[Rfam]
RNA sequence: AUUACCUAGAGACCUUGUUAAAAUGCAGAUUAUGAUUCAGCAGGUCUGGGGUAAGGCCUCAAACUCUGCAUUUCUAACAAGUUCCCAGGAGAUGCUGA
Number, nucleotide and partner (000 for none) at each position: 001a000002u000003u091004a000005c089006c000007u000008a000009g085010a000011g083012a000013c000014c081015u080016u079017g078018u077019u076020a075021a073022a072023a071024u000025g069026c068027a067028g066029a065030u000031u063032a000033u061034g060035a059036u000037u000038c000039a000040g000041c000042a000043g000044g000045u000046c000047u000048g000049g000050g000051g000052u000053a000054a000055g000056g000057c000058c000059u035060c034061a033062a000063a031064c000065u029066c028067u027068g026069c025070a000071u023072u022073u021074c000075u020076a019077a018078c017079a016080a015081g014082u000083u011084c000085c009086c000087a000088g000089g005090a000091g003092a000093u000094g000095c000096u000097g000098a000

Description
The record is a 98-nucleotide RNA from Loxodonta africana, which matches "mir-544 microRNA precursor family" in Rfam. The match comes from Rfam's covariance-model search (70 bits). On this family, see Chiang et al., Genes Dev 2010: "Mammalian microRNAs: experimental evaluation of novel and previously annotated genes". Gene Ontology terms of the family: RISC complex and miRNA-mediated post-transcriptional gene silencing. Taxonomically the source falls in Loxodonta (Eukaryota, Deuterostomia, Gnathostomata, Sarcopterygii).